Background: A member of the RNA family "Purine riboswitch aptamer" from Clostridium thermobutyricum, 98 nucleotides long. Rfam describes the family as follows. Riboswitches are metabolite binding domains within certain messenger RNAs that serve as precision sensors for their corresponding targets. The base pairs follow the family's consensus structure, which is taken from published work.
RNA sequence: UAUAUUAACAAAUGGAUAACUCAUAUAAGGCAAUAAUAUGGUUUGCCGUUUCUACUAGAUACCAAUAAUAUCUAACUAUGAGAUUAAACUUAGAGAAU
Numbered sequence: 001u002a003u004a005u006u007a008a009c010a011a012a013u014g015g016a017u018a019a020c021u022c023a024u025a026u027a028a029g030g031c032a033a034u035a036a037u038a039u040g041g042u043u044u045g046c047c048g049u050u051u052c053u054a055c056u057a058g059a060u061a062c063c064a065a066u067a068a069u070a071u072c073u074a075a076c077u078a079u080g081a082g083a084u085u086a087a088a089c090u091u092a093g094a095g096a097a098u
Stems, first nucleotide, its partner, number of pairs: 018084001020082006029047005056074006